[Rfam]
RNA sequence: GCGCCCGUGGUCCAAUGGAUAGGACGUAGGCCUCCGGAGCCUGAGGUAGGGGUUCGAUUCCCUUCGGGCGCA
Numbered sequence: 001g002c003g004c005c006c007g008u009g010g011u012c013c014a015a016u017g018g019a020u021a022g023g024a025c026g027u028a029g030g031c032c033u034c035c036g037g038a039g040c041c042u043g044a045g046g047u048a049g050g051g052g053u054u055c056g057a058u059u060c061c062c063u064u065c066g067g068g069c070g071c072a
Stems, first nucleotide, its partner, number of pairs: 001071007010025004027043005048064005
A member of the RNA family "tRNA" from Sulfoacidibacillus thermotolerans, 72 nucleotides long. It scores 66 bits against the family's covariance model. The family's consensus secondary structure is taken from published work. Rfam classes the family as a transfer RNA.